[Rfam]
RNA sequence: GGCCCAAACUGAGUAGCAAUGCGAAAAGCAUGGUCGUUCAAACCCUGGAAAAGCAUACGACGCUCGUCGUCUAGGUUUUGCUUUUCCAGGUCAUAUGCAGGAAUGCAUGUGGGGUCCGCAAGGAUCC
Numbered sequence: 001g002g003c004c005c006a007a008a009c010u011g012a013g014u015a016g017c018a019a020u021g022c023g024a025a026a027a028g029c030a031u032g033g034u035c036g037u038u039c040a041a042a043c044c045c046u047g048g049a050a051a052a053g054c055a056u057a058c059g060a061c062g063c064u065c066g067u068c069g070u071c072u073a074g075g076u077u078u079u080g081c082u083u084u085u086c087c088a089g090g091u092c093a094u095a096u097g098c099a100g101g102a103a104u105g106c107a108u109g110u111g112g113g114g115u116c117c118g119c120a121a122g123g124a125u126c127c
Stems, first nucleotide, its partner, number of pairs: 001035004009028002013022003044090011057077001059071004092111008112127006